Small nucleolar RNA F1/F2/snoR5a: a 148-nucleotide RNA sequence from Salix koriyanagi. The family has 8 seed sequences and 325 matches in Rfam 15.1. Rfam classes the family as an H/ACA-box small nucleolar RNA. This family contains F1, F2 and snoR5a sequences, all of which are members of the the H/ACA class of snoRNA that guide the sites of modification of uridines to pseudouridines.
RNA sequence: AUAUGCCUGAGGUAUCUAAUGCCUAGAUUCCAUUUACAUGGCUAGGCGUUUCGUAAAGAAGGCAGAAAGAAAACUAUACAGAUUAGGUCUUGCGACACAGUUUGCUUUUUACAAUAAGCUUACUGUUACUUUAACCCUGAUCACAUUC
Numbered sequence: 001a002u003a004u005g006c007c008u009g010a011g012g013u014a015u016c017u018a019a020u021g022c023c024u025a026g027a028u029u030c031c032a033u034u035u036a037c038a039u040g041g042c043u044a045g046g047c048g049u050u051u052c053g054u055a056a057a058g059a060a061g062g063c064a065g066a067a068a069g070a071a072a073a074c075u076a077u078a079c080a081g082a083u084u085a086g087g088u089c090u091u092g093c094g095a096c097a098c099a100g101u102u103u104g105c106u107u108u109u110u111a112c113a114a115u116a117a118g119c120u121u122a123c124u125g126u127u128a129c130u131u132u133a134a135c136c137c138u139g140a141u142c143a144c145a146u147u148c
Base pairs, nucleotide, nucleotide: 004064005063006062007061008060018050019049020048021047022046023045024044025043026042029041030040032039082141083140084139085138086137097126098125099124100123101122104119105118106117